[Rfam]
The family of this 157-nucleotide RNA sequence from Massilia sp. BSC265 is "FMN riboswitch aptamer (RFN element)". The family's consensus secondary structure is taken from published work. The organism belongs to Massilia, within Bacteria. Rfam links the family to the GO term FMN binding.
RNA sequence: UGACGUCUUCGGGGCGGGGCCUGGGCGGCCCCGUGCAAUUCCCCACCGGCGGUAUGGCCUGCAAUGGGCCGAGCCCGCGAGCGCCUGCGCAAGCAGGGUCAGCAGACCUGGUGAGAAGCCAGGGCCGACGGUAUAGUCCGGAUGAAAGAAGAUGUGC
Numbered sequence: 001u002g003a004c005g006u007c008u009u010c011g012g013g014g015c016g017g018g019g020c021c022u023g024g025g026c027g028g029c030c031c032c033g034u035g036c037a038a039u040u041c042c043c044c045a046c047c048g049g050c051g052g053u054a055u056g057g058c059c060u061g062c063a064a065u066g067g068g069c070c071g072a073g074c075c076c077g078c079g080a081g082c083g084c085c086u087g088c089g090c091a092a093g094c095a096g097g098g099u100c101a102g103c104a105g106a107c108c109u110g111g112u113g114a115g116a117a118g119c120c121a122g123g124g125c126c127g128a129c130g131g132u133a134u135a136g137u138c139c140g141g142a143u144g145a146a147a148g149a150a151g152a153u154g155u156g157c
Stems, first nucleotide, its partner, number of pairs: 003155008017043003045137002047127002049078004073125002081103002107123005129140003